[Rfam]
RNA sequence: CCAGUAAAAGAGCAGCUCUGUUGAAAAACAGAUACGCUAAGUCACAGGUCAAGGUUUUAAAAGAAUAAACUAAGAUGGCUGGACUGCAUGG
Numbered sequence: 001c002c003a004g005u006a007a008a009a010g011a012g013c014a015g016c017u018c019u020g021u022u023g024a025a026a027a028a029c030a031g032a033u034a035c036g037c038u039a040a041g042u043c044a045c046a047g048g049u050c051a052a053g054g055u056u057u058u059a060a061a062a063g064a065a066u067a068a069a070c071u072a073a074g075a076u077g078g079c080u081g082g083a084c085u086g087c088a089u090g091g
Stems, first nucleotide, its partner, number of pairs: 012037002017032006040085004045081003048076003054070004
c-di-GMP-I riboswitch aptamer: a 91-nucleotide RNA sequence from Alteribacillus bidgolensis. Its family is annotated with cyclic-di-GMP binding in the Gene Ontology. The source organism's lineage runs through Bacteria, Bacillati, Bacillota, Caryophanales and Alteribacillus. GEMM was predicted in a large-scale screen for bacterial structured RNA regulatory elements.